Shown here is an 85-nucleotide sequence from Paenibacillus sp. FSL H8-0548, a member of the family "c-di-GMP-I riboswitch aptamer". Lineage of the source: Bacteria > Bacillati > Bacilli > Paenibacillaceae > Paenibacillus.
RNA sequence: AAACUGAAAAGGCAAGCUAAUUGAAAGAUUAGUACGCAAAGUUAUGGGCCUAAGGUGUUCACACUACGGCGGCCAGACCGCCGGA
Numbered sequence: 001a002a003a004c005u006g007a008a009a010a011g012g013c014a015a016g017c018u019a020a021u022u023g024a025a026a027g028a029u030u031a032g033u034a035c036g037c038a039a040a041g042u043u044a045u046g047g048g049c050c051u052a053a054g055g056u057g058u059u060c061a062c063a064c065u066a067c068g069g070c071g072g073c074c075a076g077a078c079c080g081c082c083g084g085a
Stems, first nucleotide, its partner, number of pairs: 012037002017032006041078003045075003048070003055064003
Pairs were carried over by alignment from the consensus structure, which is taken from published work.